[Rfam]
RNA sequence: UAAGAAAAAGCCAAACUUAUCGUGAGAUAAGGACGGAAAGCUGCGGGUCUUAUAUAAGACAGCCGGGCUACCUUAA
Numbered sequence: 001u002a003a004g005a006a007a008a009a010g011c012c013a014a015a016c017u018u019a020u021c022g023u024g025a026g027a028u029a030a031g032g033a034c035g036g037a038a039a040g041c042u043g044c045g046g047g048u049c050u051u052a053u054a055u056a057a058g059a060c061a062g063c064c065g066g067g068c069u070a071c072c073u074u075a076a
Base pairs, nucleotide, nucleotide: 001076003073004072011036012035016031017030018029019028020027021026034062039069040068041067042066044065045064046063047060048059049058
The record is a 76-nucleotide sequence from Desulfonema limicola, which matches "c-di-GMP-I-GGC riboswitch aptamer" in Rfam.
Its Rfam clan is "c-di-GMP_I riboswitch clan".
A reference for the family is Weinberg et al. (2017), "Bioinformatic analysis of riboswitch structures uncovers variant classes with altered ligand specificity", Proc Natl Acad Sci U S A.